[Rfam]
RNA sequence: GUGGGGCGCACCUAGGGUUCCGUUCUGGCCGGUGGGCUGGGGGCUGGUCCGAGAGGUGCAGGCGGGCGCCUGAGCGGCGGCCGUUCCACGGCGGGAGAAAAGCCCGGGAGAC
Dot-bracket structure: .......(((((..((...((((((.(.........).)))..).)).))....))))).(((((.((((.....)))).))))).(.[...(((.......))).)..]..
Overview: Rfam assigns this 112-nucleotide RNA sequence from Acrocarpospora pleiomorpha to the family "Guanidine-I riboswitch aptamer". For this family Rfam cites "New RNA motifs suggest an expanded scope for riboswitches in bacterial genetic control" (Barrick et al., Proc Natl Acad Sci U S A, 2004). The match comes from Rfam's covariance-model search (64 bits). This family represents a conserved RNA structure found upstream of the ykkC and yxkD genes in Bacillus subtilis and related genes in other bacteria. The function of this family is unclear although it has been suggested that it may function to switch on efflux pumps and detoxification systems in response to harmful environmental molecules. The source organism's lineage runs through Bacteria, Bacillati, Actinomycetota, Actinomycetes and Acrocarpospora.